The family of this 61-nucleotide RNA sequence from Paulinella micropora is "Plastid-psbN 5UTR RNA". Rfam 15.1 lists 2,345 matches to the family in 397 species. Rfam describes the family as follows. Plastid psbN is a non-coding RNA (ncRNA) recognised in plastids. It was reported as a conserved 11 stem-loop in the prime untranslated region (5UTR) of psbN genes. It has been reported that the motif is retained in a subset of mature transcripts in barley, which can suggests a possible role in transcript alternative 5 prime processing.

RNA sequence: AAACACACCCAUUAUAGGCGUGGUCCCCCAACCUGGGACAACUUUACCGUAUUCAGAAUUU
Numbered sequence: 001a002a003a004c005a006c007a008c009c010c011a012u013u014a015u016a017g018g019c020g021u022g023g024u025c026c027c028c029c030a031a032c033c034u035g036g037g038a039c040a041a042c043u044u045u046a047c048c049g050u051a052u053u054c055a056g057a058a059u060u061u
Stems, first nucleotide, its partner, number of pairs: 017045002020042002023039005
Overview
Lineage of the source: Eukaryota > Sar > Rhizaria > Euglyphida > Paulinella. Rfam classes the family as a cis-regulatory element.